[Rfam]
RNA sequence: CCAUGGUAAAGGGAGCUCCCUUCAGUCCAAGCACAGAUAAGAAAGGAUUAAAUUUGUCUCCCGCAUCAUUCACACAUUCACAAUAGGUCAACCUCUGUCCCUUCUAUCGUGUAUGAAUGAAUGAGUCGGCAGCAAAUCCGUAUCCUCUACCCACCUAUGAGUGGACUGAAGGAAGCUCCUUUUCAACCAUUU
Numbered sequence: 001c002c003a004u005g006g007u008a009a010a011g012g013g014a015g016c017u018c019c020c021u022u023c024a025g026u027c028c029a030a031g032c033a034c035a036g037a038u039a040a041g042a043a044a045g046g047a048u049u050a051a052a053u054u055u056g057u058c059u060c061c062c063g064c065a066u067c068a069u070u071c072a073c074a075c076a077u078u079c080a081c082a083a084u085a086g087g088u089c090a091a092c093c094u095c096u097g098u099c100c101c102u103u104c105u106a107u108c109g110u111g112u113a114u115g116a117a118u119g120a121a122u123g124a125g126u127c128g129g130c131a132g133c134a135a136a137u138c139c140g141u142a143u144c145c146u147c148u149a150c151c152c153a154c155c156u157a158u159g160a161g162u163g164g165a166c167u168g169a170a171g172g173a174a175g176c177u178c179c180u181u182u183u184c185a186a187c188c189a190u191u192u
Stems, first nucleotide, its partner, number of pairs: 013178005019172002023168007036155001058132002061129003067123004075115001